[Rfam]
RNA: Small nucleolar RNA Z266
RNA sequence: GUAUGGCAAGUAUGAUGAGUCUACUAGAUGUGUCAGGGGUGUAUUCCCAUAGAGCCAAAACCUCUGAGGCUUAUUGAUAUUCUGACUUGCCAACC
Numbered sequence: 001g002u003a004u005g006g007c008a009a010g011u012a013u014g015a016u017g018a019g020u021c022u023a024c025u026a027g028a029u030g031u032g033u034c035a036g037g038g039g040u041g042u043a044u045u046c047c048c049a050u051a052g053a054g055c056c057a058a059a060a061c062c063u064c065u066g067a068g069g070c071u072u073a074u075u076g077a078u079a080u081u082c083u084g085a086c087u088u089g090c091c092a093a094c095c
Stems, first nucleotide, its partner, number of pairs: 001095001004092007